[Rfam]
RNA sequence: GGCUUCAUGUGAUGGAGACAUACCCGGGGAAGACUGUGACCAACUGGGAUGUAUUCGUACUGUCUGAUGGGCC
Number, nucleotide and partner (000 for none) at each position: 001g073002g072003c071004u000005u070006c069007a068008u000009g000010u000011g064012a063013u062014g061015g060016a000017g000018a058019c057020a054021u053022a052023c051024c048025c047026g000027g045028g044029g000030a000031a000032g041033a000034c000035u000036g000037u000038g000039a000040c000041c032042a000043a000044c028045u027046g000047g025048g024049a000050u000051g023052u022053a021054u020055u000056c000057g019058u018059a000060c015061u014062g013063u012064c011065u000066g000067a000068u007069g006070g005071g003072c002073c001
RNA: Small nucleolar RNA ZL2
Organism: Chinchilla lanigera